The family of this 130-nucleotide sequence from Polymorphospora rubra is "c-di-AMP riboswitch aptamer (ydaO/yuaA leader)". The match comes from Rfam's covariance-model search (86 bits). From the family's description: This family represents a conserved RNA structure found upstream of the ydaO and yuaA genes in Bacillus subtilis and related genes in other bacteria. The ydaO/yuaA element is thought to act as a genetic 'off' switch for the ydaO and yuaA genes in its native state. It is believed that the element may be triggered during osmotic shock leading to activation of ydaO, a predicted amino acid transporter gene, and members of the yuaA-yubG operon which code for KtrA and KtrB K+ transporters.
RNA sequence: CGGCGGCCGUCGCCUAAUCGCCUUGGCGAGCCGGGGAACCAUCGUUACUCGGGGUGCAUCCGCGACAGCGGUAGGGAUCUUCCGUCCCGAACCCGUCAGCUAACCCGGUCGGCGGCUGACGGAAGGACUG
Dot-bracket structure: ..........((((...(((......)))((((((....(..........)(((.....((((....))))..((((.......))))...))).........)))))).))))................